The family of this 72-nucleotide RNA from Rhinopithecus roxellana is "mir-3689 microRNA precursor family". A search with the family's covariance model found it, with a score of 61 bits. Gene Ontology terms of the family: miRNA-mediated post-transcriptional gene silencing and RISC complex.
[Rfam]
RNA sequence: GGGGGGUGUGACCCCGCGCCCGCUGGGGGGUGUGCUCCCGCGCUCCCUGGGGGGUGUGCUCCUGUGCUCCCU
Numbered sequence: 001g002g003g004g005g006g007u008g009u010g011a012c013c014c015c016g017c018g019c020c021c022g023c024u025g026g027g028g029g030g031u032g033u034g035c036u037c038c039c040g041c042g043c044u045c046c047c048u049g050g051g052g053g054g055u056g057u058g059c060u061c062c063u064g065u066g067c068u069c070c071c072u
Base pairs, nucleotide, nucleotide: 001071002070003069004068005067015058016057017056018055020053021052023050024049025048026047027046028045029044031042032041033040034039